[Rfam]
RNA sequence: UGCAGAUGAUGCCAAUCUCACGAUGGUCUGCCGAGCCCACCACGGGCCUGACGAUGCUGCCACAUGGCUUUACUGAUGCAGGUGA
Number, nucleotide and partner (000 for none) at each position: 001u080002g079003c078004a077005g000006a000007u000008g000009a000010u000011g000012c000013c000014a000015a000016u000017c000018u000019c000020a000021c000022g000023a000024u000025g000026g000027u000028c000029u000030g000031c000032c000033g000034a000035g000036c000037c000038c000039a000040c000041c000042a000043c000044g000045g000046g000047c000048c000049u000050g000051a000052c000053g000054a000055u000056g000057c000058u000059g000060c000061c000062a000063c000064a000065u000066g000067g000068c000069u000070u000071u000072a000073c000074u000075g000076a000077u004078g003079c002080a001081g000082g000083u000084g000085a000
RNA: Small nucleolar RNA SNORD35
Organism: Vireo altiloquus